RNA sequence: GCACCCUUAGCUCAGUCGGAUAGAGCAACCGCCUUCUAAGCGGUCGGUCAGUGGUUCGAAUCCACUAGGGUGCG
Numbered sequence: 001g002c003a004c005c006c007u008u009a010g011c012u013c014a015g016u017c018g019g020a021u022a023g024a025g026c027a028a029c030c031g032c033c034u035u036c037u038a039a040g041c042g043g044u045c046g047g048u049c050a051g052u053g054g055u056u057c058g059a060a061u062c063c064a065c066u067a068g069g070g071u072g073c074g
Stems, first nucleotide, its partner, number of pairs: 001073007010026004028044005050066005

Shown here is a 74-nucleotide RNA from Deinococcus ruber, a member of the family "tRNA". NCBI's taxonomy places the organism under Bacteria, Deinococcota, Deinococci, Deinococcales, Deinococcus. From the family's description: Transfer RNA (tRNA) molecules are approximately 80 nucleotides in length. Their secondary structure includes four short double-helical elements and three loops (D, anti-codon, and T loops). Gene Ontology term of the family: triplet codon-amino acid adaptor activity. It scores 70 bits against the family's covariance model. The family's RNA type in Rfam is transfer RNA.